[Rfam]
A member of the RNA family "mir-458 microRNA precursor family" from Gymnorhina tibicen, 78 nucleotides long.
RNA sequence: GUACUUAUGGCAGUACCAUUCCAAGAGCUAUGACAAUGCCGCUGUUGACAGCUCUGGAAAUGGCCCUGCCAUCGGCAC
Numbered sequence: 001g002u003a004c005u006u007a008u009g010g011c012a013g014u015a016c017c018a019u020u021c022c023a024a025g026a027g028c029u030a031u032g033a034c035a036a037u038g039c040c041g042c043u044g045u046u047g048a049c050a051g052c053u054c055u056g057g058a059a060a061u062g063g064c065c066c067u068g069c070c071a072u073c074g075g076c077a078c
Base pairs, nucleotide, nucleotide: 002077004075007072008071009070011068012067013066016063017062018061019060020059024055025054026053027052028051029050031048
Background
It scores 61 bits against the family's covariance model. Gene Ontology terms of the family: miRNA-mediated post-transcriptional gene silencing and RISC complex. NCBI's taxonomy places the organism under Eukaryota, Teleostomi, Aves, Telluraves, Gymnorhina.